[Rfam]
RNA sequence: AGAUGAGAGAAACACGCCGCUCGCGGGAGACCACGGGCGGUCCCGGUCCGGCGCUUCCCCGGCGCCUUCCGGGUCGUGCCCCGGCGCACGCCCCCGGAGCCUCCGGCUCCGGAACCCCUCACCGGUCGGA
Numbered sequence: 001a002g003a004u005g006a007g008a009g010a011a012a013c014a015c016g017c018c019g020c021u022c023g024c025g026g027g028a029g030a031c032c033a034c035g036g037g038c039g040g041u042c043c044c045g046g047u048c049c050g051g052c053g054c055u056u057c058c059c060c061g062g063c064g065c066c067u068u069c070c071g072g073g074u075c076g077u078g079c080c081c082c083g084g085c086g087c088a089c090g091c092c093c094c095c096g097g098a099g100c101c102u103c104c105g106g107c108u109c110c111g112g113a114a115c116c117c118c119u120c121a122c123c124g125g126u127c128g129g130a
Stems, first nucleotide, its partner, number of pairs: 004121004009117001017040007025032002043073002046070001050066005076089004094112008122129002

Rfam assigns this 130-nucleotide RNA from Streptomyces fulvorobeus to the family "Streptomyces RNA 5676". For this family Rfam cites "Deep sequencing-based identification of small non-coding RNAs in Streptomyces coelicolor" (Vockenhuber et al., RNA Biol, 2011). From the family's description: Identified by deep sequencing of transcriptome at the end of exponential growth phase. Appears longer on northern blot than sequencing transcript. This indicates processing step. Streptomyces specific.